[Rfam]
RNA sequence: AGAAGAAUGCCCAACCAGCCCUCAGUUGCUACAGUUGCCUGUUGUUUCAGCUCGACAACAACAGGCGGCUGUAGCAAUGGGGGGCUGGAUGGGCAUCUCAAU
Numbered sequence: 001a002g003a004a005g006a007a008u009g010c011c012c013a014a015c016c017a018g019c020c021c022u023c024a025g026u027u028g029c030u031a032c033a034g035u036u037g038c039c040u041g042u043u044g045u046u047u048c049a050g051c052u053c054g055a056c057a058a059c060a061a062c063a064g065g066c067g068g069c070u071g072u073a074g075c076a077a078u079g080g081g082g083g084g085c086u087g088g089a090u091g092g093g094c095a096u097c098u099c100a101a102u
Base pairs, nucleotide, nucleotide: 005099006098007096008095009094010093011092012091013090015088016087017086018085019084020083021082022081023080025078026077027076028075029074030073031072032071033070034069035068036067037066038065039064040063041062042061043060044059045058046057047055048054
Notes
Rfam assigns this 102-nucleotide RNA from Pan troglodytes to the family "mir-3937 microRNA precursor family". Its family is annotated with RISC complex and miRNA-mediated post-transcriptional gene silencing in the Gene Ontology. NCBI's taxonomy places the organism under Eukaryota, Craniata, Haplorrhini, Hominoidea, Pan. Rfam 15.1 lists 18 matches to the family in 18 species.